[Rfam]
The family of this 165-nucleotide RNA from Octodon degus is "U1 spliceosomal RNA".
It scores 115 bits against the family's covariance model.
Its family is annotated with pre-mRNA 5'-splice site binding, mRNA 5'-splice site recognition and U1 snRNP in the Gene Ontology.
From the family's description: U1 is a small nuclear RNA (snRNA) component of the spliceosome (involved in pre-mRNA splicing). Its 5' end forms complementary base pairs with the 5' splice junction, thus defining the 5' donor site of an intron. There are significant differences in sequence and secondary structure between metazoan and yeast U1 snRNAs, the latter being much longer (568 nucleotides as compared to 164 nucleotides in human).
For this family Rfam cites "The uRNA database" (Zwieb, Nucleic Acids Res, 1997).

RNA sequence: AUACUUACCUGGCAGGGGGAGAUACCAUGAUCACAAAGGUGGUUUUCCCCAGGCGAGGCUGAUACAUUGCACUCCAUAUGUGCUGACACCUUCGAUUGCCCCAAAUGUGGAAAACUCGACUGCAUAAUUUGUGGUAAUGAGGAACUGCGUUCUCACUCUGCCCUU
Numbered sequence: 001a002u003a004c005u006u007a008c009c010u011g012g013c014a015g016g017g018g019g020a021g022a023u024a025c026c027a028u029g030a031u032c033a034c035a036a037a038g039g040u041g042g043u044u045u046u047c048c049c050c051a052g053g054c055g056a057g058g059c060u061g062a063u064a065c066a067u068u069g070c071a072c073u074c075c076a077u078a079u080g081u082g083c084u085g086a087c088a089c090c091u092u093c094g095a096u097u098g099c100c101c102c103a104a105a106u107g108u109g110g111a112a113a114a115c116u117c118g119a120c121u122g123c124a125u126a127a128u129u130u131g132u133g134g135u136a137a138u139g140a141g142g143a144a145c146u147g148c149g150u151u152c153u154c155a156c157u158c159u160g161c162c163c164u165u
Base pairs, nucleotide, nucleotide: 012123013122014121015120016049017048018047019046020045021044024043025042026041027040028039051091052090053089055087057084058083059082062079063078064077093118094117095116096114097112100110101109139164141162142161144159147156149154